RNA sequence: GGGUCCAGAGAUAUGUCCUGUUAUUUCUGGAGGUUAAGAAGAUCGGAUAGUCGGGCCGCUAUCUG
Numbered sequence: 001g002g003g004u005c006c007a008g009a010g011a012u013a014u015g016u017c018c019u020g021u022u023a024u025u026u027c028u029g030g031a032g033g034u035u036a037a038g039a040a041g042a043u044c045g046g047a048u049a050g051u052c053g054g055g056c057c058g059c060u061a062u063c064u065g
Stems, first nucleotide, its partner, number of pairs: 005030008044065004049060003
nhaA-I RNA: a 65-nucleotide RNA sequence. Rfam's curators put it in the seed alignment. Rfam classes the family as a riboswitch. About the family: Acidobacteria, Alphaproteobacteria, Betaproteobacteria and Gammaproteobacteria, Verrucomicrobia, cand. division NC10.